About this RNA
The family of this 101-nucleotide RNA from Ogataea philodendri is "Small nucleolar RNA snR48". For this family Rfam cites "A computational screen for methylation guide snoRNAs in yeast" (Lowe and Eddy, Science, 1999). A search with the family's covariance model found it, with a score of 63 bits. The source organism's lineage runs through Eukaryota, Ascomycota, saccharomyceta, Pichiales and Ogataea. Clan: SNORD60 clan. Its family is annotated with nucleolus and RNA processing in the Gene Ontology.
RNA sequence: CAGCAUAUGAUGAAUUCUUGUUUUAUUAUACUUUUCUUUCUGGCAUCUCUAAUGUUAGAGCUUCCGGCUCGAUGAAUAUAACCCUUGACACCUAUCUGAAG
Numbered sequence: 001c002a003g004c005a006u007a008u009g010a011u012g013a014a015u016u017c018u019u020g021u022u023u024u025a026u027u028a029u030a031c032u033u034u035u036c037u038u039u040c041u042g043g044c045a046u047c048u049c050u051a052a053u054g055u056u057a058g059a060g061c062u063u064c065c066g067g068c069u070c071g072a073u074g075a076a077u078a079u080a081a082c083c084c085u086u087g088a089c090a091c092c093u094a095u096c097u098g099a100a101g
Stems, first nucleotide, its partner, number of pairs: 059069004